[Rfam]
RNA sequence: UGUUGGAUGAUGAAAAGAAUUAGUGGAUUCCAACUGAUUUUUAAUACAUGAUAUCUCAAGUAGCUACUUCUGAGAACA
Numbered sequence: 001u002g003u004u005g006g007a008u009g010a011u012g013a014a015a016a017g018a019a020u021u022a023g024u025g026g027a028u029u030c031c032a033a034c035u036g037a038u039u040u041u042u043a044a045u046a047c048a049u050g051a052u053a054u055c056u057c058a059a060g061u062a063g064c065u066a067c068u069u070c071u072g073a074g075a076a077c078a
Stems, first nucleotide, its partner, number of pairs: 001078004
This 78-nucleotide sequence from Juglans regia belongs to the Rfam family "Small nucleolar RNA R12".
The literature on the family includes a 2003 paper in Nucleic Acids Res by Chen et al., "The high diversity of snoRNAs in plants: identification and comparative study of 120 snoRNA genes from Oryza sativa".
The family's consensus secondary structure was predicted with PFOLD.
About the family: snoR12 is a C/D box small nucleolar RNA, which acts as a methylation guide for 25S ribosomal RNA in plants. snoR12 has been alternatively named snoZ44 in Arabidopsis and snoZ131 in rice.
Its family is annotated with nucleolus and RNA processing in the Gene Ontology.
Taxonomically the source falls in Juglans (Eukaryota, Embryophyta, Spermatophyta, Fagales).